[Rfam]
Description
This 110-nucleotide RNA sequence belongs to the Rfam family "EcpR1".
RNA sequence: AUACCCCAUGAUGUCAGGUCCGCCGCAUCUCCUGGGUCGUGGGGUGGCCGGUCAAGACCAAGUGCAAUGUGGUAUCCUCGUUCCACGCCUUUGUCCUGACCGGCCUUCAA
Numbered sequence: 001a002u003a004c005c006c007c008a009u010g011a012u013g014u015c016a017g018g019u020c021c022g023c024c025g026c027a028u029c030u031c032c033u034g035g036g037u038c039g040u041g042g043g044g045u046g047g048c049c050g051g052u053c054a055a056g057a058c059c060a061a062g063u064g065c066a067a068u069g070u071g072g073u074a075u076c077c078u079c080g081u082u083c084c085a086c087g088c089c090u091u092u093g094u095c096c097u098g099a100c101c102g103g104c105c106u107u108c109a110a
Stems, first nucleotide, its partner, number of pairs: 003045008014035005046105009056095001
Perviously named SmelC291, SmrC10, or Sra33. According to its overproduction phenotype it was renamed Elongated Cell Phenotype RNA1. Rfam classes the family as a small RNA.